Manganese Mn2+ riboswitch aptamer (yybP-ykoY): a 254-nucleotide RNA from Trinickia dinghuensis.
[Rfam]
RNA sequence: CCGGCCCUCAUUGGGGAGUAGCCGCCCCGCUGUAUCCGCUGCACAGGACGAAAGACGAUCGCAUGACCGAUCGCUCUUCCGGAUCCGCGGCGCGCAUGCAUCGCGGGGGCGUCCGUCAACAUACUUGGCUCGCACGCGAGCUAUGGCGGACGCAGCCUUUGGCCUGGCGAGACCGAUGAUCCCCGUGCACGCCGCUUUCAGGGCCCGGCAGCGCGGAGGAUCGUCGCUCGCUCACAUCUUGGCCCGAGGAAGAU
Numbered sequence: 001c002c003g004g005c006c007c008u009c010a011u012u013g014g015g016g017a018g019u020a021g022c023c024g025c026c027c028c029g030c031u032g033u034a035u036c037c038g039c040u041g042c043a044c045a046g047g048a049c050g051a052a053a054g055a056c057g058a059u060c061g062c063a064u065g066a067c068c069g070a071u072c073g074c075u076c077u078u079c080c081g082g083a084u085c086c087g088c089g090g091c092g093c094g095c096a097u098g099c100a101u102c103g104c105g106g107g108g109g110c111g112u113c114c115g116u117c118a119a120c121a122u123a124c125u126u127g128g129c130u131c132g133c134a135c136g137c138g139a140g141c142u143a144u145g146g147c148g149g150a151c152g153c154a155g156c157c158u159u160u161g162g163c164c165u166g167g168c169g170a171g172a173c174c175g176a177u178g179a180u181c182c183c184c185g186u187g188c189a190c191g192c193c194g195c196u197u198u199c200a201g202g203g204c205c206c207g208g209c210a211g212c213g214c215g216g217a218g219g220a221u222c223g224u225c226g227c228u229c230g231c232u233c234a235c236a237u238c239u240u241g242g243c244c245c246g247a248g249g250a251a252g253a254u
Stems, first nucleotide, its partner, number of pairs: 026107005109153010126143007160253001
Lineage of the source: Bacteria > Pseudomonadota > Betaproteobacteria > Burkholderiales > Trinickia. It scores 63 bits against the family's covariance model.